[Rfam]
RNA sequence: AGGUCUAUCGCCAAGCGGUAAGGCAACGGGUUUUGAUCCCGUCAUCCCCUGGUUCGAAUCCAGGUAGACCUG
Numbered sequence: 001a002g003g004u005c006u007a008u009c010g011c012c013a014a015g016c017g018g019u020a021a022g023g024c025a026a027c028g029g030g031u032u033u034u035g036a037u038c039c040c041g042u043c044a045u046c047c048c049c050u051g052g053u054u055c056g057a058a059u060c061c062a063g064g065u066a067g068a069c070c071u072g
Base pairs, nucleotide, nucleotide: 001071002070003069004068005067006066007065010024011023012022026042027041028040029039030038048064049063050062051061052060
RNA: tRNA
Organism: Photobacterium damselae